[Rfam]
A member of the RNA family "Small nucleolar RNA snoR100" from Rhododendron williamsianum, 108 nucleotides long. Gene Ontology terms of the family: RNA processing and nucleolus. By type it is an H/ACA-box small nucleolar RNA. The organism belongs to Rhododendron, within Eukaryota.
RNA sequence: CAAUGAAAGAAGUAUGGUAAUGUGCACAUAAAUUGAAUUGGGUCUCUAGGUCUGCUCUCUCUGAUGUCAUUUGGCUUUGAUUUGGGGACAUAGUCCUGUAGCAAAACA
Numbered sequence: 001c002a003a004u005g006a007a008a009g010a011a012g013u014a015u016g017g018u019a020a021u022g023u024g025c026a027c028a029u030a031a032a033u034u035g036a037a038u039u040g041g042g043u044c045u046c047u048a049g050g051u052c053u054g055c056u057c058u059c060u061c062u063g064a065u066g067u068c069a070u071u072u073g074g075c076u077u078u079g080a081u082u083u084g085g086g087g088a089c090a091u092a093g094u095c096c097u098g099u100a101g102c103a104a105a106a107c108a
Base pairs, nucleotide, nucleotide: 012025013024014023015022040091042089043088044087050081051080052079054075055074056073